[Rfam]
RNA sequence: GUGGUAACAUUCACAUUAAGAAUAGUGUGGCUAUAUUCCGUUAUUACAGAAAUGUAUCCCACACUGAAAAGCGUGAUAUCGCAUGAGCGAUUUUAACGCUUCCCGUUUUGUUGAGGGAAGCGUGAACUGGAAAUAAUGUGACAAUGAAUGAAGGAGAGACCCAUGCAGGUCAGCAGAAGGCAGUUCUUUAAG
Numbered sequence: 001g002u003g004g005u006a007a008c009a010u011u012c013a014c015a016u017u018a019a020g021a022a023u024a025g026u027g028u029g030g031c032u033a034u035a036u037u038c039c040g041u042u043a044u045u046a047c048a049g050a051a052a053u054g055u056a057u058c059c060c061a062c063a064c065u066g067a068a069a070a071g072c073g074u075g076a077u078a079u080c081g082c083a084u085g086a087g088c089g090a091u092u093u094u095a096a097c098g099c100u101u102c103c104c105g106u107u108u109u110g111u112u113g114a115g116g117g118a119a120g121c122g123u124g125a126a127c128u129g130g131a132a133a134u135a136a137u138g139u140g141a142c143a144a145u146g147a148a149u150g151a152a153g154g155a156g157a158g159a160c161c162c163a164u165g166c167a168g169g170u171c172a173g174c175a176g177a178a179g180g181c182a183g184u185u186c187u188u189u190a191a192g
Stems, first nucleotide, its partner, number of pairs: 001031002004028003009023004032048001034046002049059001051057001060075003064071001078091005096123004101118004124186006139172004153162002
Dot-bracket structure: ((.(((..((((.......))))..))).))(.((.........)).)(.(.....).)(((.(......).)))..(((((....)))))....((((.((((..........)))).))))((((((.........((((..........((......))......))))........))))))......
This 192-nucleotide sequence from Yersinia aldovae belongs to the Rfam family "FdoG-1 5' UTR thermometer". The source organism's lineage runs through Bacteria, Pseudomonadati, Pseudomonadota, Yersiniaceae and Yersinia aldovae. About the family: Located upstream of fdoG-1 gene which is involved in metabolic processes. The base pairs follow the family's consensus structure. The literature on the family includes a 2016 paper in Proc Natl Acad Sci U S A by Righetti et al., "Temperature-responsive in vitro RNA structurome of Yersinia pseudotuberculosis".